Background: Shown here is a 126-nucleotide RNA sequence from Octodon degus, a member of the family "Small nucleolar RNA SNORA1". Taxonomically the source falls in Octodon (Eukaryota, Bilateria, Mammalia, Octodontidae). The family's consensus secondary structure was predicted with PFOLD. Rfam classes the family as an H/ACA-box small nucleolar RNA.
[Rfam]
RNA sequence: AGGAAUAAAAUGGGAAUGACUGUUGAUUGGUGUCCAGAAUUGGUCAAUGUAGCUAAAAUUGAGACACAGGUCAUGCUUUCAUCAUAGUAAAUAUUUACAGUGGUGACAAUGAGGCCUGUAACAUUU
Numbered sequence: 001a002g003g004a005a006u007a008a009a010a011u012g013g014g015a016a017u018g019a020c021u022g023u024u025g026a027u028u029g030g031u032g033u034c035c036a037g038a039a040u041u042g043g044u045c046a047a048u049g050u051a052g053c054u055a056a057a058a059u060u061g062a063g064a065c066a067c068a069g070g071u072c073a074u075g076c077u078u079u080c081a082u083c084a085u086a087g088u089a090a091a092u093a094u095u096u097a098c099a100g101u102g103g104u105g106a107c108a109a110u111g112a113g114g115c116c117u118g119u120a121a122c123a124u125u126u
Stems, first nucleotide, its partner, number of pairs: 011036004016031002066119005080105006